[Rfam]
Nucleotides: 085
Base pairs, nucleotide, nucleotide: 014071015070016069017068018067019066020065021064022063023062026059028057029056030055031054032053033052
Number, partner (000 for none) and nucleotide at each position: 001000c002000a003000g004000u005000a006000c007000a008000c009000u010000c011000a012000u013000c014071c015070a016069u017068a018067a019066a020065g021064u022063a023062g024000g025000a026059a027000a028057c029056a030055c031054u032053a033052c034000a035000c036000a037000g038000g039000a040000c041000a042000c043000g044000g045000c046000g047000g048000u049000u050000u051000a052033g053032u054031a055030g056029u057028g058000c059026u060000u061000u062023c063022u064021a065020c066019u067018u068017u069016a070015u071014g072000g073000a074000g075000g076000a077000g078000u079000g080000c081000a082000c083000u084000g085000u